[Rfam]
RNA: U7 small nuclear RNA
RNA sequence: UAGCUUUACAGAUCUUUACAAUUUGUCCAGCAGGCUUUCUGGUUUUCACCUGGGCCAGGCCCAA
Numbered sequence: 001u002a003g004c005u006u007u008a009c010a011g012a013u014c015u016u017u018a019c020a021a022u023u024u025g026u027c028c029a030g031c032a033g034g035c036u037u038u039c040u041g042g043u044u045u046u047c048a049c050c051u052g053g054g055c056c057a058g059g060c061c062c063a064a
Base pairs, nucleotide, nucleotide: 033061034060035059036058037057039054040053041050042049043048